[Rfam]
RNA sequence: CGCUUUUUUCGCCUAAGCGGAGCGCGACCGCCGCUUCAAAUCGUGAAGGCCUUCAUCGACGCCCAUCGGGAUGGCCUUGGGGUCGAGCCAAUCUGCCAGGCGCUGCAGGUGGUUCCG
Numbered sequence: 001c002g003c004u005u006u007u008u009u010c011g012c013c014u015a016a017g018c019g020g021a022g023c024g025c026g027a028c029c030g031c032c033g034c035u036u037c038a039a040a041u042c043g044u045g046a047a048g049g050c051c052u053u054c055a056u057c058g059a060c061g062c063c064c065a066u067c068g069g070g071a072u073g074g075c076c077u078u079g080g081g082g083u084c085g086a087g088c089c090a091a092u093c094u095g096c097c098a099g100g101c102g103c104u105g106c107a108g109g110u111g112g113u114u115c116c117g
Base pairs, nucleotide, nucleotide: 017031018030019029020028078117079116080115081114082113089112092109093108094107095106096105
RNA: ALIL pseudoknot